[Rfam]
RNA sequence: UUGCAGCCAGUUAAGCCUACUGUGCUCUUUUCUCCAUGGGGGCCUGGUGUGCAAUGGCUGCAAACCGCAGCCUCCUCGGUAGUGUACGCAGCCUGUUGCCUGUACCGCUUGCCCCAAGGGAACUUGGAGACAGCU
Numbered sequence: 001u002u003g004c005a006g007c008c009a010g011u012u013a014a015g016c017c018u019a020c021u022g023u024g025c026u027c028u029u030u031u032c033u034c035c036a037u038g039g040g041g042g043c044c045u046g047g048u049g050u051g052c053a054a055u056g057g058c059u060g061c062a063a064a065c066c067g068c069a070g071c072c073u074c075c076u077c078g079g080u081a082g083u084g085u086a087c088g089c090a091g092c093c094u095g096u097u098g099c100c101u102g103u104a105c106c107g108c109u110u111g112c113c114c115c116a117a118g119g120g121a122a123c124u125u126g127g128a129g130a131c132a133g134c135u
Base pairs, nucleotide, nucleotide: 002053003052004051005050019048020047021046022045025042026041027040028039078123080121089111090110091109093107
The record is a 135-nucleotide sequence from Tursiops truncatus, which matches "Small nucleolar RNA SNORA70" in Rfam. The base pairs follow the family's consensus structure, which was predicted with PFOLD. Rfam describes the family as follows. snoRNA U70 seems to be exclusive to mammals and is a member of the H/ACA class of snoRNA which contain H (ANANNA) and ACA box motifs. H/ACA box snoRNAs are involved in the conversion of uridines to pseudouridines (5-ribosyluracil) a constituent of structural RNAs (transfer, ribosomal, small nuclear, and small nucleolar). Taxonomically the source falls in Tursiops (Eukaryota, Bilateria, Theria, Laurasiatheria). A reference for the family is Charette and Gray (2000), "Pseudouridine in RNA: what, where, how, and why", IUBMB Life.